The family of this 67-nucleotide RNA from Bacillus sp. OxB-1 is "Bacillaceae-1 RNA". The organism belongs to Bacillus, within Bacteria.
RNA sequence: UUCCCGUGAAGGCAACCUAAGUGCGCCACGUCCUGUGGCAACGGUUGCAUGACCUACAUCCUGUAGG
Numbered sequence: 001u002u003c004c005c006g007u008g009a010a011g012g013c014a015a016c017c018u019a020a021g022u023g024c025g026c027c028a029c030g031u032c033c034u035g036u037g038g039c040a041a042c043g044g045u046u047g048c049a050u051g052a053c054c055u056a057c058a059u060c061c062u063g064u065a066g067g
Base pairs, nucleotide, nucleotide: 012048013047014046015045016044017043025039026038027037028036029035053067054066055065056064057063

Source information:
A search with the family's covariance model found it, with a score of 70 bits. Pairs were carried over by alignment from the consensus structure, which is taken from published work.